RNA sequence: AAAAUGUACGUAGCGCCAGAGCCUUAACUGUUUAAGGCUGACGAGGACUAGAGUUUAUCGAAAAUUCGGCGGAUGCUCUAGAGGCUGUCACAGCCUAAGAAAGCUUACAAAACCUGAGAGUAAUCUCAGAGACAAUCGGGCUUUUAGUGAUUGAU
Numbered sequence: 001a002a003a004a005u006g007u008a009c010g011u012a013g014c015g016c017c018a019g020a021g022c023c024u025u026a027a028c029u030g031u032u033u034a035a036g037g038c039u040g041a042c043g044a045g046g047a048c049u050a051g052a053g054u055u056u057a058u059c060g061a062a063a064a065u066u067c068g069g070c071g072g073a074u075g076c077u078c079u080a081g082a083g084g085c086u087g088u089c090a091c092a093g094c095c096u097a098a099g100a101a102a103g104c105u106u107a108c109a110a111a112a113c114c115u116g117a118g119a120g121u122a123a124u125c126u127c128a129g130a131g132a133c134a135a136u137c138g139g140g141c142u143u144u145u146a147g148u149g150a151u152u153g154a155u
Stems, first nucleotide, its partner, number of pairs: 020039008048081005058069004082096006099145007114129006
The record is a 155-nucleotide sequence from Acetoanaerobium sticklandii, which matches "glmS glucosamine-6-phosphate activated ribozyme aptamer" in Rfam. Gene Ontology terms of the family: regulation of gene expression and catalytic activity. About the family: This entry contains a glucosamine-6-phosphate activated ribozyme that is found in the mRNA for GlmS. GlmS is an enzyme that uses fructose-6-phosphate and glutamine to generate glucosamine-6-phosphate. The ribozyme catalyses self cleavage of the glmS mRNA that is thought to regulate GlmS activity. A search with the family's covariance model found it, with a score of 94 bits. Rfam classes the family as a riboswitch.